[Rfam]
RNA: Small nucleolar RNA Z43
Organism: Tetracentron sinense
RNA sequence: GGACGAUGACGAUUCAGUGAUAGGUCUCGUUCGUCGUAAUGGCGAAUCCGCCUUGCCGACCAUUCUAUAUAUCACCACCCAUAUUCUGAGUCC
Numbered sequence: 001g002g003a004c005g006a007u008g009a010c011g012a013u014u015c016a017g018u019g020a021u022a023g024g025u026c027u028c029g030u031u032c033g034u035c036g037u038a039a040u041g042g043c044g045a046a047u048c049c050g051c052c053u054u055g056c057c058g059a060c061c062a063u064u065c066u067a068u069a070u071a072u073c074a075c076c077a078c079c080c081a082u083a084u085u086c087u088g089a090g091u092c093c
Stems, first nucleotide, its partner, number of pairs: 001093004044054002